The family of this 161-nucleotide RNA sequence from uncultured archaeon A07HR60 is "Sense overlapping transcript RNA 0042 (sot)". From the family's description: It is associated with IS1341-type transposase (tnpB) genes, at the 3'-end in H. salinarum NRC-1. The tetraloop structural motif may be functional. The family's RNA type in Rfam is small RNA. The family's consensus secondary structure was predicted with RNAfold. The literature on the family includes a 2015 paper in RNA Biol by Gomes-Filho et al., "Sense overlapping transcripts in IS1341-type transposase genes are functional non-coding RNAs in archaea". A search with the family's covariance model found it, with a score of 113 bits.
RNA sequence: CGGUAACUCCGAGUCCGUCAACGGAUAGGAGUAACGGCUGUUUGGCACAGCCAUCGGUACGCCUGUUCGAUAAGUCGACGGGGAGAGUAGCCCCACAAGAACAGGUUGUCCCGUAGACCACAAUAUCCCAACGUGGGAAUCCCACGGCUGAAGCCGUGGGA
Number, nucleotide and partner (000 for none) at each position: 001c000002g000003g035004u034005a000006a000007c031008u030009c029010c028011g000012a000013g026014u025015c024016c023017g022018u000019c000020a000021a000022c017023g016024g015025a014026u013027a000028g010029g009030a008031g007032u000033a000034a004035c003036g052037g051038c050039u049040g048041u000042u000043u000044g000045g000046c000047a000048c040049a039050g038051c037052c036053a000054u000055c113056g112057g111058u000059a109060c108061g000062c105063c104064u103065g102066u101067u100068c099069g000070a000071u000072a000073a000074g000075u000076c000077g000078a000079c000080g000081g094082g093083g092084a000085g000086a000087g000088u000089a000090g000091c000092c083093c082094c081095a000096c000097a000098a000099g068100a067101a066102c065103a064104g063105g062106u000107u000108g060109u059110c000111c057112c056113g055114u000115a000116g000117a000118c000119c000120a000121c000122a000123a000124u000125a000126u138127c137128c136129c135130a000131a000132c000133g000134u000135g129136g128137g127138a126139a000140u161141c160142c159143c158144a157145c156146g155147g154148c153149u000150g000151a000152a000153g148154c147155c146156g145157u144158g143159g142160g141161a140